[Rfam]
Nucleotides: 114
Stems, first nucleotide, its partner, number of pairs: 001114002004111002008107004013102004018097001020095002037077002040074001049063003
Number, partner (000 for none) and nucleotide at each position: 001114g002113u003000u004111g005110g006000u007000u008107a009106u010105g011104g012000g013102g014101a015100c016099a017000u018097g019000u020095g021094c022000c023000c024000a025000a026000u027000u028000a029000c030000a031000a032000u033000g034000g035000g036000a037077g038076g039000c040074a041000a042000a043000a044000u045000g046000g047000u048000c049063g050062g051061c052000a053000c054000c055000c056000u057000c058000u059000g060000u061051g062050c063049c064000a065000u066000u067000g068000c069000u070000g071000g072000u073000g074040u075000c076038c077037u078000g079000a080000c081000c082000a083000u084000u085000g086000c087000c088000c089000u090000g091000c092000c093000a094021g095020u096000c097018c098000c099016u100015g101014u102013c103000a104011u105010u106009g107008u108000c109000u110005c111004c112000a113002a114001c
A member of the RNA family "Potassium channel RNA editing signal" from Poecilia formosa, 114 nucleotides long.
The family's RNA type in Rfam is cis-regulatory element.
On this family, see Bhalla et al., Nat Struct Mol Biol 2004: "Control of human potassium channel inactivation by editing of a small mRNA hairpin".
The match comes from Rfam's covariance-model search (116 bits).